RNA sequence: UCACUGGUUUCUCUUCAGAUCGAAUAAAUCUUUCGCCUUUUACUAAAGAUUUCCGUGGAGAGAAACAAAUCAGUUUCAAACUAAUUUUUUGAAGCCUUGCUUUGGCAAGGCA
Numbered sequence: 001u002c003a004c005u006g007g008u009u010u011c012u013c014u015u016c017a018g019a020u021c022g023a024a025u026a027a028a029u030c031u032u033u034c035g036c037c038u039u040u041u042a043c044u045a046a047a048g049a050u051u052u053c054c055g056u057g058g059a060g061a062g063a064a065a066c067a068a069a070u071c072a073g074u075u076u077c078a079a080a081c082u083a084a085u086u087u088u089u090u091g092a093a094g095c096c097u098u099g100c101u102u103u104g105g106c107a108a109g110g111c112a
Stems, first nucleotide, its partner, number of pairs: 003074004007066011026052008094111006
U5 spliceosomal RNA: a 112-nucleotide RNA sequence from Piliocolobus tephrosceles. For this family Rfam cites "The uRNA database" (Zwieb, Nucleic Acids Res, 1997). From the family's description: U5 RNA is a component of both types of known spliceosome. Pairs were carried over by alignment from the consensus structure, which is taken from published work. The source organism's lineage runs through Eukaryota, Opisthokonta, Tetrapoda, Eutheria and Piliocolobus.